Rfam assigns this 167-nucleotide RNA from Dendroctonus ponderosae to the family "Glm Y RNA activator of glmS mRNA". NCBI's taxonomy places the organism under Eukaryota, Hexapoda, Insecta, Neuropteroidea, Dendroctonus. The family is grouped with related families in Rfam's "Glm clan". It is annotated as a small RNA.
[Rfam]
Nucleotides: 167
Base pairs, nucleotide, nucleotide: 005074006073007071008070009069010068011067012066019060020059021058022057024055027054028053084162085161086160087159088158089157090156093143094142095141096140097139106131107130108129109128145155146154147153
Number, partner (000 for none) and nucleotide at each position: 001000g002000g003000u004000u005074g006073c007071u008070c009069a010068u011067u012066c013000a014000a015000u016000c017000a018000g019060u020059u021058a022057u023000a024055a025000a026000u027054g028053c029000c030000u031000c032000g033000g034000c035000g036000g037000u038000u039000u040000u041000a042000c043000c044000g045000c046000a047000a048000u049000u050000u051000g052000c053028g054027c055024u056000c057022a058021u059020a060019a061000c062000a063000u064000c065000a066012g067011a068010a069009u070008g071007a072000c073006g074005c075000c076000g077000u078000a079000g080000a081000a082000a083000a084162g085161g086160u087159g088158c089157c090156u091000a092000u093143c094142g095141u096140u097139c098000a099000c100000c101000a102000a103000a104000c105000c106131g107130a108129u109128a110000u111000c112000g113000u114000u115000g116000c117000u118000a119000c120000g121000g122000c123000a124000a125000u126000c127000u128109u129108a130107u131106c132000a133000a134000g135000c136000a137000u138000c139097g140096a141095a142094c143093g144000a145155c146154a147153c148000g149000u150000u151000g152000a153147g154146u155145g156090a157089g158088g159087c160086a161085c162084c163000a164000c165000c166000u167000c